This 73-nucleotide RNA sequence from Aerococcus urinaehominis belongs to the Rfam family "tRNA". Its family is annotated with triplet codon-amino acid adaptor activity in the Gene Ontology. The family's RNA type in Rfam is transfer RNA. NCBI's taxonomy places the organism under Bacteria, Bacillati, Bacillota, Bacilli, Aerococcus. The base pairs follow the family's consensus structure, which is taken from published work.
[Rfam]
RNA sequence: GACUCGUUAGCUCAGUCGGUAGAGCAACUGACUUUUAAUCAGUGGGUCGCAGGUUCGAAUCCUGCACGGGUCA
Numbered sequence: 001g002a003c004u005c006g007u008u009a010g011c012u013c014a015g016u017c018g019g020u021a022g023a024g025c026a027a028c029u030g031a032c033u034u035u036u037a038a039u040c041a042g043u044g045g046g047u048c049g050c051a052g053g054u055u056c057g058a059a060u061c062c063u064g065c066a067c068g069g070g071u072c073a
Stems, first nucleotide, its partner, number of pairs: 001072007010025004027043005049065005